[Rfam]
RNA sequence: CUUGGAUGAGGGCCAUAGCAGCAGUGUUCAGAUCACAGCCCAAGUCAGAUUUCUAAGAAUCUGUGAAUUCUGCU
Numbered sequence: 001c002u003u004g005g006a007u008g009a010g011g012g013c014c015a016u017a018g019c020a021g022c023a024g025u026g027u028u029c030a031g032a033u034c035a036c037a038g039c040c041c042a043a044g045u046c047a048g049a050u051u052u053c054u055a056a057g058a059a060u061c062u063g064u065g066a067a068u069u070c071u072g073c074u
Base pairs, nucleotide, nucleotide: 010041011040012039013038017074018073019072020071021070023068024036025035026034046063047062048061049060050059051058052057
RNA: Mammalian CPEB3 ribozyme
Organism: Geotrypetes seraphini